[Rfam]
RNA sequence: AUACUGUGAUGGUUGCAUAGUUCAGCAGAUUUAAGUCAUGAAGAAAUAUACCUCUUCUGAUGUAUCU
Numbered sequence: 001a002u003a004c005u006g007u008g009a010u011g012g013u014u015g016c017a018u019a020g021u022u023c024a025g026c027a028g029a030u031u032u033a034a035g036u037c038a039u040g041a042a043g044a045a046a047u048a049u050a051c052c053u054c055u056u057c058u059g060a061u062g063u064a065u066c067u
Stems, first nucleotide, its partner, number of pairs: 001065004006039005013028004
Rfam assigns this 67-nucleotide RNA from Spermophilus dauricus to the family "Small nucleolar RNA SNORD77". Pairs were carried over by alignment from the consensus structure, which was predicted with RNAalifold. The family is grouped with related families in Rfam's "SNORD77 clan". By type it is a C/D-box small nucleolar RNA. The organism belongs to Spermophilus, within Eukaryota.